[Rfam]
Background
Rfam assigns this 91-nucleotide RNA from Marichromatium purpuratum to the family "Glycine riboswitch aptamer". Pairs were carried over by alignment from the consensus structure. The organism belongs to Marichromatium purpuratum, within Bacteria. The match comes from Rfam's covariance-model search (73 bits).
RNA sequence: UCAUGUCCCGCGGGAGAGACCGGCAGCUUCGCCGGCGCCGAAGGCGCAACAUCGCCCGGAAUCGCUCAGGCAAAAGGACUGCGGGAACGAG
Number, nucleotide and partner (000 for none) at each position: 001u000002c000003a000004u000005g000006u086007c085008c084009c083010g082011c081012g080013g079014g000015a000016g000017a000018g000019a000020c035021c034022g033023g032024c000025a000026g000027c000028u000029u000030c000031g000032c023033c022034g021035g020036c000037g071038c070039c069040g067041a066042a000043g000044g065045c064046g063047c000048a000049a000050c058051a000052u000053c000054g000055c000056c000057c000058g050059g000060a000061a000062u000063c046064g045065c044066u041067c040068a000069g039070g038071c037072a000073a000074a000075a000076g000077g000078a000079c013080u012081g011082c010083g009084g008085g007086a006087a000088c000089g000090a000091g000